This 183-nucleotide RNA from Clostridium tepidiprofundi belongs to the Rfam family "Group II catalytic intron D1-D4-3".

Nucleotides: 183
Base pairs, nucleotide, nucleotide: 001016002015003014004013005012006011029182030181031180032179035176041169042168043167045165046161047160049158050157062156063155064153065152066151067150074146075145078142080140082138085113086112087111091106092105093104094103
Number, partner (000 for none) and nucleotide at each position: 001016u002015c003014c004013a005012c006011c007000g008000u009000g010000a011006g012005g013004u014003g015002g016001a017000a018000u019000c020000u021000g022000a023000a024000a025000g026000a027000a028000g029182u030181u031180g032179g033000c034000g035176g036000c037000a038000a039000a040000a041169c042168u043167c044000u045165g046161g047160u048000c049158u050157g051000a052000c053000g054000a055000a056000c057000a058000g059000g060000a061000a062156c063155u064153a065152c066151a067150u068000a069000u070000g071000a072000a073000g074146c075145a076000u077000a078142u079000g080140c081000u082138u083000g084000u085113g086112g087111g088000u089000a090000a091106g092105u093104u094103u095000g096000c097000a098000a099000a100000a101000c102000a103094a104093a105092a106091c107000a108000u109000u110000u111087c112086u113085u114000c115000c116000a117000u118000g119000c120000c121000c122000a123000a124000a125000g126000a127000a128000g129000g130000a131000a132000g133000a134000a135000a136000c137000g138082g139000u140080g141000g142078a143000a144000a145075u146074g147000a148000a149000u150067a151066u152065g153064u154000u155063a156062g157050u158049g159000a160047a161046u162000u163000a164000u165045u166000u167043g168042a169041g170000c171000a172000a173000a174000u175000a176035u177000u178000a179032u180031c181030a182029a183000g
NCBI's taxonomy places the organism under Bacteria, Bacillota, Eubacteriales, Clostridium, Clostridium tepidiprofundi.